[Rfam]
RNA sequence: GUGAAAUAAAUCACAACAAACAUACACCCCUUUGUUUGAACGUGAACAUUUCUCCCAUCCCCUUUGUGAAAAUGAGUGUCUCUCGUAGAGUCACUCAUUUU
Numbered sequence: 001g002u003g004a005a006a007u008a009a010a011u012c013a014c015a016a017c018a019a020a021c022a023u024a025c026a027c028c029c030c031u032u033u034g035u036u037u038g039a040a041c042g043u044g045a046a047c048a049u050u051u052c053u054c055c056c057a058u059c060c061c062c063u064u065u066g067u068g069a070a071a072a073u074g075a076g077u078g079u080c081u082c083u084c085g086u087a088g089a090g091u092c093a094c095u096c097a098u099u100u101u
Stems, first nucleotide, its partner, number of pairs: 003052005011045004017038006072098007080090003

A member of the RNA family "RNA Staph. aureus E (RoxS)" from Candidatus Kurthia intestinigallinarum, 101 nucleotides long.
The organism belongs to Kurthia, within Bacteria.
Gene Ontology term of the family: regulation of translational initiation.
The family's consensus secondary structure is taken from published work.
The literature on the family includes a 2015 paper in PLoS Genet by Durand et al., "A nitric oxide regulated small RNA controls expression of genes involved in redox homeostasis in Bacillus subtilis".
It scores 81 bits against the family's covariance model.
About the family: It was shown to be regulated by the presence of nitric oxide (NO). In Bacillus subtilis it controls expression of genes with functions related to oxidative stress and oxidation-reduction reactions and it was renamed RoxS (for related to oxidative stress).